RNA sequence: GCGCCCAGGGGUGCACGCUGGCCGGCGAGGUUUCGCCCGCCGGCGCUUUGCGU
Number, nucleotide and partner (000 for none) at each position: 001g000002c000003g000004c000005c000006c000007a000008g000009g000010g000011g000012u000013g000014c000015a000016c045017g044018c043019u042020g041021g040022c039023c000024g000025g036026c035027g034028a033029g000030g000031u000032u000033u028034c027035g026036c025037c000038c000039g022040c021041c020042g019043g018044c017045g016046c000047u000048u000049u000050g000051c000052g000053u000
RNA: ffh sRNA